The record is a 97-nucleotide sequence from Sesamum indicum, which matches "Plastid-rps12 3UTR RNA" in Rfam. NCBI's taxonomy places the organism under Eukaryota, Viridiplantae, Tracheophyta, Spermatophyta, Sesamum. For this family Rfam cites "Retrograde signaling in plants: A critical review focusing on the GUN pathway and beyond" (Richter et al., Plant Commun, 2023). Plastid rpl20 is a non-coding RNA (ncRNA) recognised in plastids. The family's RNA type in Rfam is cis-regulatory element. A search with the family's covariance model found it, with a score of 100 bits.
[Rfam]
RNA sequence: GGUGUCCAUUGGUGCAAACCCAAUCACCUGAAUUUAAGAUGAGAAGCAAUUCUCUAUUGGUAGUAAAUGAUUAUCCAUUAAUCGGAGCAAAUUUGUU
Number, nucleotide and partner (000 for none) at each position: 001g000002g000003u000004g000005u000006c000007c000008a000009u023010u022011g021012g020013u000014g000015c000016a000017a000018a000019c000020c012021c011022a010023a009024u000025c000026a000027c000028c000029u000030g000031a000032a000033u000034u000035u000036a000037a000038g000039a000040u000041g000042a000043g000044a000045a000046g000047c000048a000049a000050u000051u000052c087053u086054c085055u084056a078057u077058u000059g075060g074061u073062a072063g071064u070065a000066a000067a000068u000069g000070a064071u063072u062073a061074u060075c059076c000077a057078u056079u000080a000081a000082u000083c000084g055085g054086a053087g052088c000089a000090a000091a000092u000093u000094u000095g000096u000097u000